The family of this 84-nucleotide RNA sequence from Micromonospora sp. MW-13 is "ZMP/ZTP riboswitch aptamer (pfl RNA motif)". Pairs were carried over by alignment from the consensus structure, which is taken from published work. Gene Ontology terms of the family: regulation of purine nucleotide biosynthetic process and one-carbon metabolic process. It scores 39 bits against the family's covariance model. The organism belongs to Micromonospora, within Bacteria.
[Rfam]
RNA sequence: GGCGGGGUACGCGACUGGCGGCACCGGGGAUGGGAUCGACCAUCGGGGAGCUCGCCGUGGGGGUCGUCCGCCUGGGCUCCCGCG
Numbered sequence: 001g002g003c004g005g006g007g008u009a010c011g012c013g014a015c016u017g018g019c020g021g022c023a024c025c026g027g028g029g030a031u032g033g034g035a036u037c038g039a040c041c042a043u044c045g046g047g048g049a050g051c052u053c054g055c056c057g058u059g060g061g062g063g064u065c066g067u068c069c070g071c072c073u074g075g076g077c078u079c080c081c082g083c084g
Stems, first nucleotide, its partner, number of pairs: 003059002006056003011051002015047002017072005030043004061079005